This 209-nucleotide RNA from Rhizobium sp. Leaf306 belongs to the Rfam family "Rhizobiales sRNA Atu_C9". The source organism's lineage runs through Bacteria, Alphaproteobacteria, Hyphomicrobiales, Rhizobiaceae and Rhizobium. The base pairs follow the family's consensus structure, which was predicted with WAR. On this family, see Wilms et al., RNA Biol 2012: "Deep sequencing uncovers numerous small RNAs on all four replicons of the plant pathogen Agrobacterium tumefaciens". By type it is a small RNA.
Nucleotides: 209
Base pairs, nucleotide, nucleotide: 015048016047017046018045024040025039026038177209178208179207180206181205182204183203184202185201186200187199188198189197
Number, partner (000 for none) and nucleotide at each position: 001000a002000g003000u004000c005000a006000a007000c008000g009000c010000a011000a012000g013000g014000a015048g016047g017046c018045a019000g020000a021000c022000a023000u024040g025039g026038g027000a028000a029000g030000a031000a032000c033000c034000u035000a036000c037000c038026c039025u040024c041000u042000c043000a044000a045018u046017g047016u048015c049000c050000u051000g052000g053000u054000g055000g056000u057000u058000g059000g060000u061000a062000u063000u064000g065000c066000g067000u068000u069000u070000g071000u072000g073000u074000u075000c076000g077000u078000c079000g080000c081000u082000u083000c084000g085000a086000u087000g088000u089000u090000g091000u092000u093000c094000a095000u096000c097000u098000a099000g100000a101000c102000g103000c104000a105000u106000u107000c108000c109000a110000a111000a112000a113000c114000a115000a116000c117000g118000c119000a120000u121000g122000c123000a124000a125000c126000c127000g128000g129000u130000g131000a132000c133000c134000g135000g136000u137000g138000a139000u140000a141000c142000c143000u144000c145000g146000g147000a148000c149000u150000g151000a152000c153000c154000g155000u156000u157000u158000g159000a160000u161000a162000a163000u164000c165000g166000g167000c168000a169000g170000c171000a172000u173000u174000a175000c176000a177209a178208a179207a180206g181205c182204g183203c184202a185201u186200g187199u188198u189197c190000c191000c192000g193000c194000a195000u196000g197189g198188a199187a200186c201185a202184u203183g204182c205181g206180c207179u208178u209177u